[Rfam]
RNA sequence: UUAUAUUUUGCAAAUAUUUUGGGAAACAUUAAUUUUUGUUUCCGUGCUCUCCCGUUCUUCCCUGCGGAGUGCGCUGCGCCGCCCAGCCCUGUCGCCCCCCGGAGGUGAUCCCUCCCUCCUGGGUGCCCGCCACCCUGACCUGUGCCCGGCUCGCG
Numbered sequence: 001u002u003a004u005a006u007u008u009u010g011c012a013a014a015u016a017u018u019u020u021g022g023g024a025a026a027c028a029u030u031a032a033u034u035u036u037u038g039u040u041u042c043c044g045u046g047c048u049c050u051c052c053c054g055u056u057c058u059u060c061c062c063u064g065c066g067g068a069g070u071g072c073g074c075u076g077c078g079c080c081g082c083c084c085a086g087c088c089c090u091g092u093c094g095c096c097c098c099c100c101g102g103a104g105g106u107g108a109u110c111c112c113u114c115c116c117u118c119c120u121g122g123g124u125g126c127c128c129g130c131c132a133c134c135c136u137g138a139c140c141u142g143u144g145c146c147c148g149g150c151u152c153g154c155g
Stems, first nucleotide, its partner, number of pairs: 023040002026037001043073008076152001078150004101115005122131003

This 155-nucleotide RNA sequence from Felis catus belongs to the Rfam family "Mnt IRES". The family's RNA type in Rfam is internal ribosome entry site. The source organism's lineage runs through Eukaryota, Euteleostomi, Tetrapoda, Theria and Felis. From the family's description: This family represents the Mnt internal ribosome entry site (IRES). Mnt is a transcriptional repressor related to the Myc/Mad family of transcription factors. Pairs were carried over by alignment from the consensus structure, which was predicted with PFOLD. The sequence is in the family's curated seed alignment.